[Rfam]
The family of this 156-nucleotide sequence from Weissella diestrammenae is "THF (Tetrahydrofolate) riboswitch aptamer". The organism belongs to Weissella, within Bacteria. Gene Ontology term of the family: tetrahydrofolate metabolic process. A search with the family's covariance model found it, with a score of 67 bits.
RNA sequence: AACAGGGUAGAUGUUUAUGCGUUAAGUGCCUCAAAAACGGAAUGUGAGUUGAGGACGAAAAAUAACAUUUAAAAUCAGUUGACGGCUUGGGAAAUGAUACUGGGCCGGAGACUGAUGGAUAAGGUUGUUUGCGGUAUAAAUGUCGCAUUCACUGUC
Numbered sequence: 001a002a003c004a005g006g007g008u009a010g011a012u013g014u015u016u017a018u019g020c021g022u023u024a025a026g027u028g029c030c031u032c033a034a035a036a037a038c039g040g041a042a043u044g045u046g047a048g049u050u051g052a053g054g055a056c057g058a059a060a061a062a063u064a065a066c067a068u069u070u071a072a073a074a075u076c077a078g079u080u081g082a083c084g085g086c087u088u089g090g091g092a093a094a095u096g097a098u099a100c101u102g103g104g105c106c107g108g109a110g111a112c113u114g115a116u117g118g119a120u121a122a123g124g125u126u127g128u129u130u131g132c133g134g135u136a137u138a139a140a141u142g143u144c145g146c147a148u149u150c151a152c153u154g155u156c
Stems, first nucleotide, its partner, number of pairs: 002155004010144010020133003026056002029054006040150005060130007